A member of the RNA family "Alphaproteobacterial ar14" from Rhizobium sp. Root149, 128 nucleotides long. It is annotated as a small RNA. The match comes from Rfam's covariance-model search (98 bits). Rfam links the family to the GO term biological process involved in symbiotic interaction. Lineage of the source: Bacteria > Pseudomonadati > Hyphomicrobiales > Rhizobiaceae > Rhizobium. Pairs were carried over by alignment from the consensus structure.
RNA sequence: CGAUGUCAGGCCAACUCCUCCUCCUCCCAAAGUUGGCCUGCAGGAACGACAGCAACUCCUCCUCCCAUGCUGUUGUUCGGUUCUUUUCGGAAAGCCUGCCGCACCUCCUCCCGCGGCAGGCUUUUUCG
Numbered sequence: 001c002g003a004u005g006u007c008a009g010g011c012c013a014a015c016u017c018c019u020c021c022u023c024c025u026c027c028c029a030a031a032g033u034u035g036g037c038c039u040g041c042a043g044g045a046a047c048g049a050c051a052g053c054a055a056c057u058c059c060u061c062c063u064c065c066c067a068u069g070c071u072g073u074u075g076u077u078c079g080g081u082u083c084u085u086u087u088c089g090g091a092a093a094g095c096c097u098g099c100c101g102c103a104c105c106u107c108c109u110c111c112c113g114c115g116g117c118a119g120g121c122u123u124u125u126u127c128g
Stems, first nucleotide, its partner, number of pairs: 007040003011036006045077010092123011